[Rfam]
malK-II RNA: a 50-nucleotide sequence from Vibrio orientalis.
It is annotated as a cis-regulatory element.
RNA sequence: AUUCCUACUAUUAUUGCCGCCAAUACAAUUCAUAUAAUGAAGGGCAGUAA
Numbered sequence: 001a002u003u004c005c006u007a008c009u010a011u012u013a014u015u016g017c018c019g020c021c022a023a024u025a026c027a028a029u030u031c032a033u034a035u036a037a038u039g040a041a042g043g044g045c046a047g048u049a050a
Stems, first nucleotide, its partner, number of pairs: 011050008
Dot-bracket structure: ..........((((((((........................))))))))